[Rfam]
RNA: 6C RNA
Organism: Motilibacter peucedani
RNA sequence: CGCGAGCCGGCUCCUCCCCCCCGAGCCGGACGCGAGGAGAUGGACAGCCCCCGCUACCCCCCCCAGCGGGGGCUGUCCCAU
Numbered sequence: 001c002g003c004g005a006g007c008c009g010g011c012u013c014c015u016c017c018c019c020c021c022c023g024a025g026c027c028g029g030a031c032g033c034g035a036g037g038a039g040a041u042g043g044a045c046a047g048c049c050c051c052c053g054c055u056a057c058c059c060c061c062c063c064c065a066g067c068g069g070g071g072g073c074u075g076u077c078c079c080a081u
Base pairs, nucleotide, nucleotide: 002033003032004031007029008028009027010026011025012024013023043077044076045075046074047073048072049071050070051069052068053067054066055065